[Rfam]
RNA sequence: GCCACAUUCAAUUUUCGUUCCUUGCCUUUGCAGAUUGGUGGCUGGUCUCCGUCAAAGGCUGAUUAACCCGUAAGGAGCAUUCAUG
Numbered sequence: 001g002c003c004a005c006a007u008u009c010a011a012u013u014u015u016c017g018u019u020c021c022u023u024g025c026c027u028u029u030g031c032a033g034a035u036u037g038g039u040g041g042c043u044g045g046u047c048u049c050c051g052u053c054a055a056a057g058g059c060u061g062a063u064u065a066a067c068c069c070g071u072a073a074g075g076a077g078c079a080u081u082c083a084u085g
Stems, first nucleotide, its partner, number of pairs: 017078007024059006032048003